[Rfam]
RNA sequence: UGGUCGAUGAUGACAUGACCAUUGUGCAGUUUGAGUUCUAGGAACCAGGUGAUGGAGUGUGUGCUGAAAGUGGACUGAGACCG
Numbered sequence: 001u002g003g004u005c006g007a008u009g010a011u012g013a014c015a016u017g018a019c020c021a022u023u024g025u026g027c028a029g030u031u032u033g034a035g036u037u038c039u040a041g042g043a044a045c046c047a048g049g050u051g052a053u054g055g056a057g058u059g060u061g062u063g064c065u066g067a068a069a070g071u072g073g074a075c076u077g078a079g080a081c082c083g
Stems, first nucleotide, its partner, number of pairs: 002082004038048002041045001
Rfam assigns this 83-nucleotide sequence from Suricata suricatta to the family "small Cajal body-specific RNA 18". The family's RNA type in Rfam is small Cajal body RNA. A reference for the family is Galardi et al. (2002), "Purified box C/D snoRNPs are able to reproduce site-specific 2'-O-methylation of target RNA in vitro", Mol Cell Biol. Lineage of the source: Eukaryota > Chordata > Vertebrata > Mammalia > Suricata. scaRNAs are a specific class of small nuclear RNAs which localise to the Cajal bodies and guide the modification of RNA polymerase II transcribed spliceosomal RNAs U1, U2, U4, U5 and U12. This C/D box domain U91 (also known as U4-8) was identified by Darzacq and is predicted to guide the 2'O-ribose methylation of U4 snRNA C8.